The family of this 85-nucleotide sequence from a Gammaproteobacteria bacterium is "c-di-GMP-I riboswitch aptamer". Pairs were carried over by alignment from the consensus structure, which is taken from published work.

[Rfam]
RNA sequence: UAAAAAUAUUGGCAAACCCAUCGAAAGGUGGCGACGCAAAGCUACGGGACUAAAGAAGAAAUUCCAUGUCAGCCGGGUUGCGCAG
Numbered sequence: 001u002a003a004a005a006a007u008a009u010u011g012g013c014a015a016a017c018c019c020a021u022c023g024a025a026a027g028g029u030g031g032c033g034a035c036g037c038a039a040a041g042c043u044a045c046g047g048g049a050c051u052a053a054a055g056a057a058g059a060a061a062u063u064c065c066a067u068g069u070c071a072g073c074c075g076g077g078u079u080g081c082g083c084a085g
Stems, first nucleotide, its partner, number of pairs: 012037002018031005040079004045075003048070003055064003